RNA sequence: UAUAAAUCUAGUGGAAACAUUUUUGCAUUAGACUACUGAAACCAAUACACAGAAGUGCUUCUGCUACAUUUUUA
Numbered sequence: 001u002a003u004a005a006a007u008c009u010a011g012u013g014g015a016a017a018c019a020u021u022u023u024u025g026c027a028u029u030a031g032a033c034u035a036c037u038g039a040a041a042c043c044a045a046u047a048c049a050c051a052g053a054a055g056u057g058c059u060u061c062u063g064c065u066a067c068a069u070u071u072u073u074a
Stems, first nucleotide, its partner, number of pairs: 001074002004071004009066008018057008028045002